[Rfam]
RNA sequence: UAUCAUGAUGAACAACCUUAUCCAAAAGCAUAGUUCAACUGAGACUUUUCUGUCACUGAACGAGAAAAAUACCAUCAUCAAAAUCUGAAU
Numbered sequence: 001u002a003u004c005a006u007g008a009u010g011a012a013c014a015a016c017c018u019u020a021u022c023c024a025a026a027a028g029c030a031u032a033g034u035u036c037a038a039c040u041g042a043g044a045c046u047u048u049u050c051u052g053u054c055a056c057u058g059a060a061c062g063a064g065a066a067a068a069a070u071a072c073c074a075u076c077a078u079c080a081a082a083a084u085c086u087g088a089a090u
Stems, first nucleotide, its partner, number of pairs: 006020003010016001033061005043054003

A member of the RNA family "A. fumigatus snoRNA Afu_263" from Capronia coronata, 90 nucleotides long. The family is grouped with related families in Rfam's "SNORD77 clan". Rfam links the family to the GO terms nucleolus and RNA processing. Rfam classes the family as a C/D-box small nucleolar RNA. Taxonomically the source falls in Capronia coronata (Eukaryota, Pezizomycotina, leotiomyceta, Herpotrichiellaceae). It scores 62 bits against the family's covariance model.